Rfam assigns this 146-nucleotide sequence from Ammoniphilus sp. CFH 90114 to the family "FMN riboswitch aptamer (RFN element)". The source organism's lineage runs through Bacteria, Bacillota, Caryophanales, Paenibacillaceae and Ammoniphilus. On this family, see Vitreschak et al., Nucleic Acids Res 2002: "Regulation of riboflavin biosynthesis and transport genes in bacteria by transcriptional and translational attenuation". The match comes from Rfam's covariance-model search (113 bits).
[Rfam]
RNA sequence: AGAUUCCUUCGGGGCCGGGUGCAAUUCCCGACCGGCGGUGAUGGGUAGUGUACCCUUAGUCCGUGAGCCGAGACCUGUAACAAGGUUGACGCUGAUUCGGUGAAAUUCCGAAACCGACAGUAUAGUCUGGAUGGGAGAAGGAGAUG
Numbered sequence: 001a002g003a004u005u006c007c008u009u010c011g012g013g014g015c016c017g018g019g020u021g022c023a024a025u026u027c028c029c030g031a032c033c034g035g036c037g038g039u040g041a042u043g044g045g046u047a048g049u050g051u052a053c054c055c056u057u058a059g060u061c062c063g064u065g066a067g068c069c070g071a072g073a074c075c076u077g078u079a080a081c082a083a084g085g086u087u088g089a090c091g092c093u094g095a096u097u098c099g100g101u102g103a104a105a106u107u108c109c110g111a112a113a114c115c116g117a118c119a120g121u122a123u124a125g126u127c128u129g130g131a132u133g134g135g136a137g138a139a140g141g142a143g144a145u146g
Stems, first nucleotide, its partner, number of pairs: 004143007017029003031126002033116002035064004059114002067092002096112005118129003